[Rfam]
RNA sequence: UAUGCGGCAGCAUAUAACUGAACUGUGGGAGGACUCAUAUGAUUCUACCCCUCUUCAUUUUUAUGCUGCUUCGGAG
Numbered sequence: 001u002a003u004g005c006g007g008c009a010g011c012a013u014a015u016a017a018c019u020g021a022a023c024u025g026u027g028g029g030a031g032g033a034c035u036c037a038u039a040u041g042a043u044u045c046u047a048c049c050c051c052u053c054u055u056c057a058u059u060u061u062u063a064u065g066c067u068g069c070u071u072c073g074g075a076g
Base pairs, nucleotide, nucleotide: 006070007069008068009067010066011065012064013063014062016060017059019057020056021055022054025051027050028049029048030046031045032044033043034041
This 76-nucleotide RNA sequence from Haemonchus contortus belongs to the Rfam family "mir-5890 microRNA precursor family". Gene Ontology terms of the family: miRNA-mediated post-transcriptional gene silencing and RISC complex.